[Rfam]
RNA sequence: GAGCAUCGCCUGAUAGGCCGGGAGUGAUGCCGUUUCCUCUCCGGCUUGCAUUCCGAUGCCAGAGUGACCCUCCCUGCGCUUUCUGUCUGCCCUGAUUCCCGUAGCAGCUCAGAUUGAAUAAGGGAGAACAUUU
Number, nucleotide and partner (000 for none) at each position: 001g000002a000003g059004c058005a057006u056007c055008g054009c000010c000011u050012g049013a000014u048015a047016g046017g045018c044019c043020g000021g000022g038023a000024g036025u000026g000027a000028u000029g000030c000031c000032g000033u000034u000035u000036c024037c000038u022039c000040u000041c000042c000043g019044g018045c017046u016047u015048g014049c012050a011051u000052u000053c000054c008055g007056a006057u005058g004059c003060c000061a000062g000063a000064g000065u000066g000067a000068c000069c000070c000071u125072c124073c123074c122075u121076g000077c000078g000079c116080u000081u000082u113083c112084u111085g110086u000087c107088u106089g105090c104091c000092c000093u000094g000095a000096u000097u000098c000099c000100c000101g000102u000103a000104g090105c089106a088107g087108c000109u000110c085111a084112g083113a082114u000115u000116g079117a000118a000119u000120a000121a075122g074123g073124g072125a071126g000127a000128a000129c000130a000131u000132u000133u000